[Rfam]
Nucleotides: 044
Base pairs, nucleotide, nucleotide: 010025011024012023013022032044033043034042
Number, partner (000 for none) and nucleotide at each position: 001000a002000u003000u004000c005000c006000u007000u008000c009000u010025g011024u012023c013022g014000u015000g016000u017000a018000u019000c020000c021000c022013c023012g024011a025010u026000u027000g028000a029000u030000g031000c032044a033043g034042c035000c036000u037000c038000a039000g040000a041000u042034g043033c044032u

The record is a 44-nucleotide sequence from Simmondsia chinensis, which matches "Plastid-ycf3 group II-D1 intron" in Rfam. Plastid rpl16 is a non-coding RNA (ncRNA) recognised in plastids. Rfam 15.1 lists 1,488 matches to the family in 559 species. Lineage of the source: Eukaryota > Streptophytina > Euphyllophyta > Pentapetalae > Simmondsia. The base pairs follow the family's consensus structure, which was predicted with LocARNA.